[Rfam]
RNA sequence: CGUCGUUCUCAGGGCGGGGUGGAACUCCCCACCGGCGGUAAGCGCUUCCCCCGCAAGCCCGCGAGCGCCUCCCCUUCGGGAGGGUCAGCAGAUCCGGUGCAACUCCGGAGCCGACGGUUAAAGUCCGGAUGAAAGAGAACGGAC
Numbered sequence: 001c002g003u004c005g006u007u008c009u010c011a012g013g014g015c016g017g018g019g020u021g022g023a024a025c026u027c028c029c030c031a032c033c034g035g036c037g038g039u040a041a042g043c044g045c046u047u048c049c050c051c052c053g054c055a056a057g058c059c060c061g062c063g064a065g066c067g068c069c070u071c072c073c074c075u076u077c078g079g080g081a082g083g084g085u086c087a088g089c090a091g092a093u094c095c096g097g098u099g100c101a102a103c104u105c106c107g108g109a110g111c112c113g114a115c116g117g118u119u120a121a122a123g124u125c126c127g128g129a130u131g132a133a134a135g136a137g138a139a140c141g142g143a144c
Base pairs, nucleotide, nucleotide: 003142004141005140006139007138008137009136010135017029018028019027031124032123033113034112035062036061037060038059057111058110065089066088093109094108095107096106097105115127116126117125
RNA: FMN riboswitch aptamer (RFN element)
Organism: Aliiruegeria lutimaris